[Rfam]
RNA sequence: AAUAUUUCUUCGGGGAGUCCGUGUGACGGGCUGAGAGGGUAAUACCAUUACCGACCCAUUGACCUGAUACGGAUCAUGCCGUCGUAGGAAUUAUUUCCACGCUUU
Numbered sequence: 001a002a003u004a005u006u007u008c009u010u011c012g013g014g015g016a017g018u019c020c021g022u023g024u025g026a027c028g029g030g031c032u033g034a035g036a037g038g039g040u041a042a043u044a045c046c047a048u049u050a051c052c053g054a055c056c057c058a059u060u061g062a063c064c065u066g067a068u069a070c071g072g073a074u075c076a077u078g079c080c081g082u083c084g085u086a087g088g089a090a091u092u093a094u095u096u097c098c099a100c101g102c103u104u105u
Base pairs, nucleotide, nucleotide: 006093009090010089012057013056014055017031018030019029020028021027038052039051040050041049042048063088064087065086066085069082070081071080072079
RNA: TPP riboswitch aptamer (THI element)
Organism: Fructobacillus durionis